[Rfam]
RNA: c-di-AMP riboswitch aptamer (ydaO/yuaA leader)
RNA sequence: UAAACAAACAGGCUGAAUUCCAUUGUAUGGAAGCGGGGGAACCAAGUUCCUGGGGUUAAUCCUGGCUAUGCCAGGAGGGAUGUGAGAAACUUCUCUGCCAUCCUACCCGACAGCUAACCUCGUAAGCUAACGCAGGGAAGAUCC
Numbered sequence: 001u002a003a004a005c006a007a008a009c010a011g012g013c014u015g016a017a018u019u020c021c022a023u024u025g026u027a028u029g030g031a032a033g034c035g036g037g038g039g040a041a042c043c044a045a046g047u048u049c050c051u052g053g054g055g056u057u058a059a060u061c062c063u064g065g066c067u068a069u070g071c072c073a074g075g076a077g078g079g080a081u082g083u084g085a086g087a088a089a090c091u092u093c094u095c096u097g098c099c100a101u102c103c104u105a106c107c108c109g110a111c112a113g114c115u116a117a118c119c120u121c122g123u124a125a126g127c128u129a130a131c132g133c134a135g136g137g138a139a140g141a142u143c144c
Stems, first nucleotide, its partner, number of pairs: 011128004018032006033123006043052002053108003061075004078103004